Shown here is a 135-nucleotide RNA sequence from Orycteropus afer, a member of the family "Small nucleolar RNA SNORA71".
RNA sequence: UCCUGCAUUUGAAAGUGGUCCUGGGCUGCCUGUGUCCUAGUCAUUGGUAGUGCAGGGAGAGGAAUUGCUGAAAAGUGUUUCCCCGUGUUUGGAGGGUCCACUCCCAUCCCUUCCAGACCCUGGAGCUUUCUCACA
Numbered sequence: 001u002c003c004u005g006c007a008u009u010u011g012a013a014a015g016u017g018g019u020c021c022u023g024g025g026c027u028g029c030c031u032g033u034g035u036c037c038u039a040g041u042c043a044u045u046g047g048u049a050g051u052g053c054a055g056g057g058a059g060a061g062g063a064a065u066u067g068c069u070g071a072a073a074a075g076u077g078u079u080u081c082c083c084c085g086u087g088u089u090u091g092g093a094g095g096g097u098c099c100a101c102u103c104c105c106a107u108c109c110c111u112u113c114c115a116g117a118c119c120c121u122g123g124a125g126c127u128u129u130c131u132c133a134c135a
Stems, first nucleotide, its partner, number of pairs: 001057009014045006023037004067132001070130002073128004087118005092112005
A search with the family's covariance model found it, with a score of 128 bits.
The organism belongs to Orycteropus afer, within Eukaryota.
A reference for the family is Ganot et al. (1997), "The family of box ACA small nucleolar RNAs is defined by an evolutionarily conserved secondary structure and ubiquitous sequence elements essential for RNA accumulation", Genes Dev.
Pairs were carried over by alignment from the consensus structure, which was predicted with PFOLD.